The record is a 142-nucleotide sequence from Jiella flava, which matches "FMN riboswitch aptamer (RFN element)" in Rfam.
For this family Rfam cites "Regulation of riboflavin biosynthesis and transport genes in bacteria by transcriptional and translational attenuation" (Vitreschak et al., Nucleic Acids Res, 2002).
The base pairs follow the family's consensus structure, which is taken from published work.
NCBI's taxonomy places the organism under Bacteria, Pseudomonadati, Alphaproteobacteria, Hyphomicrobiales, Jiella.
[Rfam]
RNA sequence: CGCCGUUCUCAGGGCGGAGUGAAAGUCUCCACCGGCGGUAAGCAGAUGACUGUAAGCCCGCGAGCGCCCUUCAUCGAAGGGGUCAGCAGAUCAGGUGCGAUUCCUGAGCCGACGGUUACAGUCCGGAUGAAAGAGACCGUGA
Numbered sequence: 001c002g003c004c005g006u007u008c009u010c011a012g013g014g015c016g017g018a019g020u021g022a023a024a025g026u027c028u029c030c031a032c033c034g035g036c037g038g039u040a041a042g043c044a045g046a047u048g049a050c051u052g053u054a055a056g057c058c059c060g061c062g063a064g065c066g067c068c069c070u071u072c073a074u075c076g077a078a079g080g081g082g083u084c085a086g087c088a089g090a091u092c093a094g095g096u097g098c099g100a101u102u103c104c105u106g107a108g109c110c111g112a113c114g115g116u117u118a119c120a121g122u123c124c125g126g127a128u129g130a131a132a133g134a135g136a137c138c139g140u141g142a
Stems, first nucleotide, its partner, number of pairs: 004139002007136004017029003031122002033111002035061004056109002064087002091107005113125003